[Rfam]
RNA sequence: UGAUGUUGCAUAACAGCCUGUGCAAAGGGCUGAUGGCUGGUGGCUAAUGUCACCGGCCU
Numbered sequence: 001u002g003a004u005g006u007u008g009c010a011u012a013a014c015a016g017c018c019u020g021u022g023c024a025a026a027g028g029g030c031u032g033a034u035g036g037c038u039g040g041u042g043g044c045u046a047a048u049g050u051c052a053c054c055g056g057c058c059u
Stems, first nucleotide, its partner, number of pairs: 014032005035058010

The family of this 59-nucleotide sequence from Pseudomonas sp. C27(2019) is "Pseudomonas sRNA P26". For this family Rfam cites "Identification of 17 Pseudomonas aeruginosa sRNAs and prediction of sRNA-encoding genes in 10 diverse pathogens using the bioinformatic tool sRNAPredict2" (Livny et al., Nucleic Acids Res, 2006). Lineage of the source: Bacteria > Pseudomonadati > Gammaproteobacteria > Pseudomonadales > Pseudomonas. The match comes from Rfam's covariance-model search (48 bits). Rfam describes the family as follows. This small RNA (sRNA) was computationally identified in the genome of the opportunistic pathogen Pseudomonas aeruginosa and its expression verified by northern blot analysis. P26 is conserved across many Gammaproteobacteria species and appears to be consistently located between the DNA directed RNA polymerase (beta subunit) and 50S ribosomal protein L7/L12 genes.